[Rfam]
RNA sequence: CAAAACUAGUGAGAUGGCAUUCUCCUAUAACCGCCAUUAUGGCUAAUAAUGCCUACAACUUC
Numbered sequence: 001c002a003a004a005a006c007u008a009g010u011g012a013g014a015u016g017g018c019a020u021u022c023u024c025c026u027a028u029a030a031c032c033g034c035c036a037u038u039a040u041g042g043c044u045a046a047u048a049a050u051g052c053c054u055a056c057a058a059c060u061u062c
Stems, first nucleotide, its partner, number of pairs: 011024003016053006033043003